[Rfam]
RNA: U1 spliceosomal RNA
RNA sequence: CACCUUACCUGGCAGGGGGAGGAUUCCCGUGAUCACGAAGGUGGUUUUUCCGGGGGCCCGGCUUUAUCCAUGCUCUCCGGAUGUGCUGACUCCUGCGAUUUCCCCAAAUGUGGGAAAACUUGACUGUGCAAUUUGUGAUAGUGGGGGGGAGGGGGGAAGAAAGAUGAAUUAAAAUUUCCUA
Dot-bracket structure: ...........((((((((((.....((((..........)))).))))))(.(((...(((..((((..........)).)).)))...)))).((((((.((.......)).)).).))).)))).......................((((((..................)))))).